RNA sequence: AAUGACUAGCUCGAUAUAGAACACUCAUGUCGAUCAAAUAAUUUGAACCAUUU
Numbered sequence: 001a002a003u004g005a006c007u008a009g010c011u012c013g014a015u016a017u018a019g020a021a022c023a024c025u026c027a028u029g030u031c032g033a034u035c036a037a038a039u040a041a042u043u044u045g046a047a048c049c050a051u052u053u
Stems, first nucleotide, its partner, number of pairs: 011033007
Shown here is a 53-nucleotide RNA from Schoepfia jasminodora, a member of the family "Plastid-atpF group II-D1 intron". NCBI's taxonomy places the organism under Eukaryota, Tracheophyta, Pentapetalae, Schoepfiaceae, Schoepfia. A reference for the family is Richter et al. (2023), "Retrograde signaling in plants: A critical review focusing on the GUN pathway and beyond", Plant Commun. Rfam's curators write: Plastid atpF is a non-coding RNA (ncRNA) recognised in plastids. It has been reported in the intron group II-D1 region of ATP synthase (atpF) genes. Rfam links the family to the GO term Group II intron splicing.